[Rfam]
RNA sequence: CCAAAGGCCCUUUUAAGGGCCACCCAUUUAUCCUUAAAAGAGCAA
Numbered sequence: 001c002c003a004a005a006g007g008c009c010c011u012u013u014u015a016a017g018g019g020c021c022a023c024c025c026a027u028u029u030a031u032c033c034u035u036a037a038a039a040g041a042g043c044a045a
Base pairs, nucleotide, nucleotide: 006021007020008019009018010017011016
This 45-nucleotide RNA from Etheostoma spectabile belongs to the Rfam family "Histone 3' UTR stem-loop".
From the family's description: The mRNAs of metazoan histone genes lack a poly-A tail. 3' end processing occurs at a site between a highly conserved stem-loop (modelled by this family) and a purine rich region around 20 nts downstream (the histone downstream element, or HDE). The stem-loop is bound by a 31 kDa stem-loop binding protein (SLBP - also termed the histone hairpin binding protein, or HBP).
A search with the family's covariance model found it, with a score of 43 bits.
The base pairs follow the family's consensus structure, which is taken from published work.